[Rfam]
RNA sequence: GGAACGAAGGCGCCCCCGUGGGACGGGGUGCCAGAUGGUUCCGCCUCAGACGGCCUAUCGCUGGCCCGCGGCGUCCGAUGCCCGACGGACGGCCGC
Numbered sequence: 001g002g003a004a005c006g007a008a009g010g011c012g013c014c015c016c017c018g019u020g021g022g023a024c025g026g027g028g029u030g031c032c033a034g035a036u037g038g039u040u041c042c043g044c045c046u047c048a049g050a051c052g053g054c055c056u057a058u059c060g061c062u063g064g065c066c067c068g069c070g071g072c073g074u075c076c077g078a079u080g081c082c083c084g085a086c087g088g089a090c091g092g093c094c095g096c
Stems, first nucleotide, its partner, number of pairs: 001042005010031007068096005073090005